[Rfam]
RNA sequence: UUUGUAGAGGCAAGAAAUGUGCCAUAUUUUCUCCUGGUAAAUUUCUUGCCUCUCAUAAU
Numbered sequence: 001u002u003u004g005u006a007g008a009g010g011c012a013a014g015a016a017a018u019g020u021g022c023c024a025u026a027u028u029u030u031c032u033c034c035u036g037g038u039a040a041a042u043u044u045c046u047u048g049c050c051u052c053u054c055a056u057a058a059u
Stems, first nucleotide, its partner, number of pairs: 003055002006053012021038003